Overview:
This 106-nucleotide RNA sequence from Canis lupus belongs to the Rfam family "mir-8834 microRNA precursor family". The family's consensus secondary structure was predicted with RNAalifold.
RNA sequence: AGGAGGAACAACCCCAGUGGCGGCGGCCAGCUCUGGAGCUGUGGAUUCAGCUCCCGCAGUAACAACGGAGCUCUCCGUCUGCAGGGCCUGGAGGCUCUGGGGGCAG
Numbered sequence: 001a002g003g004a005g006g007a008a009c010a011a012c013c014c015c016a017g018u019g020g021c022g023g024c025g026g027c028c029a030g031c032u033c034u035g036g037a038g039c040u041g042u043g044g045a046u047u048c049a050g051c052u053c054c055c056g057c058a059g060u061a062a063c064a065a066c067g068g069a070g071c072u073c074u075c076c077g078u079c080u081g082c083a084g085g086g087c088c089u090g091g092a093g094g095c096u097c098u099g100g101g102g103g104c105a106g
Stems, first nucleotide, its partner, number of pairs: 002098004009090002012086003019079005025074002029072007042058002